Small nucleolar RNA U2-19: an 82-nucleotide RNA sequence from Ophiophagus hannah.
Pairs were carried over by alignment from the consensus structure, which is taken from published work.

[Rfam]
RNA sequence: GCUCUGUGAUGAGAAAUAGCCAAAUAUGAGCACUAAAAUGAUCAGCUGAUCUGUGGUGCAUGAUUUAUAUACCGUUCUGGGA
Numbered sequence: 001g002c003u004c005u006g007u008g009a010u011g012a013g014a015a016a017u018a019g020c021c022a023a024a025u026a027u028g029a030g031c032a033c034u035a036a037a038a039u040g041a042u043c044a045g046c047u048g049a050u051c052u053g054u055g056g057u058g059c060a061u062g063a064u065u066u067a068u069a070u071a072c073c074g075u076u077c078u079g080g081g082a
Base pairs, nucleotide, nucleotide: 030059031058032057033056034055038052040051041050042049